About this RNA: Shown here is a 193-nucleotide RNA from Trichoderma atroviride, a member of the family "U2 spliceosomal RNA". The family's RNA type in Rfam is spliceosomal small nuclear RNA. It is one of the family's seed sequences. For this family Rfam cites "Crystal structure of a model branchpoint-U2 snRNA duplex containing bulged adenosines" (Berglund et al., RNA, 2001).
[Rfam]
Nucleotides: 193
Base pairs, nucleotide, nucleotide: 008027009026010025013022014021015020048067049066050065051064052063053062068083069082070081071080072079073078113148114147115146116145117144118143126137127136128135129134152185153184154183155182156181157179158178159177160176161175
Number, partner (000 for none) and nucleotide at each position: 001000u002000u003000a004000g005000c006000u007000c008027u009026c010025u011000u012000u013022g014021c015020c016000u017000u018000u019000u020015g021014g022013c023000u024000u025010a026009g027008a028000u029000c030000a031000a032000g033000u034000g035000u036000a037000g038000u039000a040000u041000c042000u043000g044000u045000u046000c047000u048067u049066u050065u051064c052063a053062g054000u055000u056000u057000a058000a059000u060000c061000u062053c063052u064051g065050a066049a067048a068083g069082g070081u071080c072079u073078c074000u075000a076000a077000g078073g079072a080071g081070a082069c083068c084000a085000a086000u087000c088000g089000u090000g091000a092000u093000u094000a095000u096000u097000c098000u099000u100000a101000u102000u103000u104000u105000u106000g107000u108000c109000c110000u111000c112000a113148g114147g115146g116145c117144g118143g119000u120000c121000u122000c123000c124000u125000c126137u127136g128135u129134g130000c131000u132000u133000g134129c135128a136127c137126a138000u139000g140000a141000u142000u143118c144117c145116g146115c147114c148113c149000a150000c151000a152185g153184u154183g155182u156181c157179c158178c159177u160176g161175g162000u163000a164000u165000u166000a167000c168000a169000c170000u171000g172000c173000c174000u175161c176160c177159a178158g179157g180000c181156g182155a183154c184153g185152c186000g187000a188000a189000c190000a191000c192000u193000u